[Rfam]
RNA: Bacterial RNase P class A
Organism: Pseudonocardia oroxyli
Nucleotides: 415
Stems, first nucleotide, its partner, number of pairs: 001411010011400001012358007020055002023052006060398003064395005069240004076294004081236005086101003090098002102116001103114004117231002122229002124225003139170002141166003145162007178196006198220001199218008244315004274306006286298004322341008
Number, partner (000 for none) and nucleotide at each position: 001411c002410g003409a004408g005407c006406a007405g008404g009403c010402c011400g012358g013357g014356c015355g016354g017353c018352c019000g020055c021054g022000u023052c024051u025050c026049c027048c028047c029000c030000u031000c032000g033000u034000c035000g036000u037000u038000c039000g040000c041000g042000g043000c044000g045000g046000c047028g048027g049026g050025g051024a052023g053000c054021c055020g056000a057000g058000g059000a060398a061397a062396g063000u064395c065394c066393g067392g068391g069240c070239u071238c072237c073000g074000c075000a076294g077293g078292g079291c080000a081236g082235g083234g084233u085232g086101g087100u088099u089000c090098g091097c092000u093000a094000a095000c096000g097091g098090c099088a100087a101086c102116c103114c104113g105112g106111g107000g108000u109000g110000a111106c112105c113104c114103g115000c116102g117231g118230g119000a120000c121000a122229g123228u124225g125224c126223c127000a128000c129000a130000g131000a132000g133000a134000a135000c136000a137000g138000a139170c140169c141166g142165c143164c144000a145162c146161c147160c148159g149158g150157c151156c152000u153000c154000c155000g156151g157150g158149c159148c160147g161146g162145g163000c164143g165142g166141u167000a168000a169140g170139g171000g172000u173000g174000a175000a176000a177000c178196g179195g180194u181193g182192g183191u184000g185000u186000a187000a188000g189000a190000g191183a192182c193181c194180a195179c196178c197000a198220g199218c200217a201216c202215c203214c204213c205212g206211g207000g208000u209000g210000a211206c212205c213204g214203g215202g216201g217200u218199g219000g220198c221000u222000c223126g224125g225124u226000a227000a228123a229122c230118c231117c232085c233084a234083c235082c236081c237072g238071g239070a240069g241000c242000a243000a244315g245314g246313c247312c248000a249000a250000a251000a252000g253000g254000u255000g256000c257000u258000c259000c260000c261000c262000a263000g264000g265000g266000a267000g268000c269000a270000c271000u272000g273000c274306g275305c276304a277303g278302g279301u280000g281000u282000u283000c284000g285000a286298g287297g288296a289295c290000g291079g292078c293077c294076c295289g296288u297287c298286c299000g300000a301279g302278c303277c304276u305275g306274c307000g308000g309000g310000u311000a312247g313246g314245c315244c316000g317000c318000u319000c320000g321000a322341g323340c324339c325338u326337g327336c328335c329334g330000g331000u332000g333000a334329c335328g336327g337326c338325a339324g340323g341322c342000c343000u344000a345000g346000a347000u348000g349000g350000a351000u352018g353017g354016u355015c356014g357013c358012c359000g360000a361000a362000c363000g364000g365000g366000u367000g368000u369000c370000g371000c372000g373000a374000g375000a376000c377000a378000c379000c380000c381000g382000g383000g384000a385000a386000c387000a388000g389000a390000a391068c392067c393066c394065g395064g396062c397061u398060u399000a400011c401000a402010g403009g404008c405007c406006u407005g408004c409003u410002c411001g412000u413000c414000c415000c